[Rfam]
RNA sequence: CGAGAAGGAUCUUCUGCUAAUAACGUGCACGUCCUGUGCGCAACGCAGAAGUCACCACAUCCUGUGGA
Numbered sequence: 001c002g003a004g005a006a007g008g009a010u011c012u013u014c015u016g017c018u019a020a021u022a023a024c025g026u027g028c029a030c031g032u033c034c035u036g037u038g039c040g041c042a043a044c045g046c047a048g049a050a051g052u053c054a055c056c057a058c059a060u061c062c063u064g065u066g067g068a
Base pairs, nucleotide, nucleotide: 011051012050013049014048015047016046017045026040027039028038029037030036055067056066057065058064
RNA: Bacillaceae-1 RNA